[Rfam]
RNA: Eukaryotic large subunit ribosomal RNA, nucleotides 3243 to 3789
Organism: Eleutherodactylus coqui
RNA sequence: GAAGACCCUGUUGAGCUUGACUCUAGUCUGCAACUGUGAAGAGACAUGAGAAGUGUAGAAUAAGUGGGAGGCCCCACCGUUCUCAGCCCCUCGGCCUCACCCCUUUCCCCCCCCCGUUCGCGGGCGGGGAAGGGGGCCCGUGGCCGGGCGGGCGGUGCACAGGGAUGCUGCCGGUGAAAUACCACUACUCAUCGUUUUUUCACUUACCUGGGGGGGCGAGCCCCGAGCGCCCUCCGCGGGGCCGGGCGUGACCCGCUUCGGGGACAGUGGCAGGUGGGGAGUUUGACUGGGGCGGUACACCUGUCAAACCGUAACGCAGGUGUCCUAAGGCGAGCUCAGGGAGGACAGAAACCUCCCAUGGAGCAGAAGGGCAAAAGCUCGCUUGAUCUUGAUUUUCAGUAUGAAUACAGACUGUGAAAGCGGGGCCUCACGAUCCUUCUGACUUUUUUGGGUUUUAAGCAGGAGGUGUCAGAAAAGUUACCACAGGGAUAACUGGCUUGUGGCGGCCAAGCGUUUAUAGCGACGUCGCUUUUUGAGCCUUCGAUAU
Numbered sequence: 001g002a003a004g005a006c007c008c009u010g011u012u013g014a015g016c017u018u019g020a021c022u023c024u025a026g027u028c029u030g031c032a033a034c035u036g037u038g039a040a041g042a043g044a045c046a047u048g049a050g051a052a053g054u055g056u057a058g059a060a061u062a063a064g065u066g067g068g069a070g071g072c073c074c075c076a077c078c079g080u081u082c083u084c085a086g087c088c089c090c091u092c093g094g095c096c097u098c099a100c101c102c103c104u105u106u107c108c109c110c111c112c113c114c115c116g117u118u119c120g121c122g123g124g125c126g127g128g129g130a131a132g133g134g135g136g137c138c139c140g141u142g143g144c145c146g147g148g149c150g151g152g153c154g155g156u157g158c159a160c161a162g163g164g165a166u167g168c169u170g171c172c173g174g175u176g177a178a179a180u181a182c183c184a185c186u187a188c189u190c191a192u193c194g195u196u197u198u199u200u201c202a203c204u205u206a207c208c209u210g211g212g213g214g215g216g217c218g219a220g221c222c223c224c225g226a227g228c229g230c231c232c233u234c235c236g237c238g239g240g241g242c243c244g245g246g247c248g249u250g251a252c253c254c255g256c257u258u259c260g261g262g263g264a265c266a267g268u269g270g271c272a273g274g275u276g277g278g279g280a281g282u283u284u285g286a287c288u289g290g291g292g293c294g295g296u297a298c299a300c301c302u303g304u305c306a307a308a309c310c311g312u313a314a315c316g317c318a319g320g321u322g323u324c325c326u327a328a329g330g331c332g333a334g335c336u337c338a339g340g341g342a343g344g345a346c347a348g349a350a351a352c353c354u355c356c357c358a359u360g361g362a363g364c365a366g367a368a369g370g371g372c373a374a375a376a377g378c379u380c381g382c383u384u385g386a387u388c389u390u391g392a393u394u395u396u397c398a399g400u401a402u403g404a405a406u407a408c409a410g411a412c413u414g415u416g417a418a419a420g421c422g423g424g425g426c427c428u429c430a431c432g433a434u435c436c437u438u439c440u441g442a443c444u445u446u447u448u449u450g451g452g453u454u455u456u457a458a459g460c461a462g463g464a465g466g467u468g469u470c471a472g473a474a475a476a477g478u479u480a481c482c483a484c485a486g487g488g489a490u491a492a493c494u495g496g497c498u499u500g501u502g503g504c505g506g507c508c509a510a511g512c513g514u515u516u517a518u519a520g521c522g523a524c525g526u527c528g529c530u531u532u533u534u535g536a537g538c539c540u541u542c543g544a545u546a547u
Base pairs, nucleotide, nucleotide: 007487008486009485010484012483013482014479015478016477017476018475020282021281022280023279027274028273029272030271031270033268036203037202038201039200040199041198042197043196044195045194046192047191048190049189050188063186064185065184066183067182070169071168207262208261209260210259211258217255218254220252285298286296287295288294299321300320301319302318303317304316324425325424330382331381332380333379334378335377336362337361339357340356341355342354343353344352363372364371387411388410389409392406393405394404395403413422414421415420436465437464438463439462440461441460445459446458447457498535500534502530503529504528505527506526507525511521512520